Description: Rfam assigns this 85-nucleotide RNA sequence from Nostoc sp. FACHB-888 to the family "Photosynthesis regulatory RNA1". Lineage of the source: Bacteria > Cyanophyceae > Nostocales > Nostocaceae > Nostoc. On this family, see Georg et al., Plant Cell 2014: "The small regulatory RNA SyR1/PsrR1 controls photosynthetic functions in cyanobacteria". From the family's description: Formerly known as Syr1 discovered in Synechocystis sp PCC 6803, is a regulatory factor controlling photosynthetic functions. PsrR1 interacts with the ribosome binding regions of several photosynthesis-related mRNAs. In particular, psaL mRNA is processed by RNase E only in the presence of PsrR1. The family's consensus secondary structure was predicted with CMfinder. By type it is a small RNA.
RNA sequence: AAAAUUUUUCCAUUUCCGUAUCGCUGUAUCUCAUUGUCAUUCUCAAUUCUCUCUUACCUCGGUUAGUUGUUUCACCGGGGUUUUU
Number, nucleotide and partner (000 for none) at each position: 001a000002a000003a000004a000005u000006u000007u000008u000009u000010c000011c000012a000013u000014u000015u000016c000017c000018g000019u000020a000021u000022c000023g000024c000025u000026g000027u000028a000029u000030c000031u000032c000033a000034u000035u000036g000037u000038c000039a000040u000041u000042c000043u000044c000045a000046a000047u000048u000049c000050u000051c000052u000053c000054u000055u000056a081057c080058c079059u078060c077061g076062g075063u074064u000065a000066g000067u000068u000069g000070u000071u000072u000073c000074a063075c062076c061077g060078g059079g058080g057081u056082u000083u000084u000085u000

Its family is annotated with regulation of translation and regulation of photosynthesis in the Gene Ontology.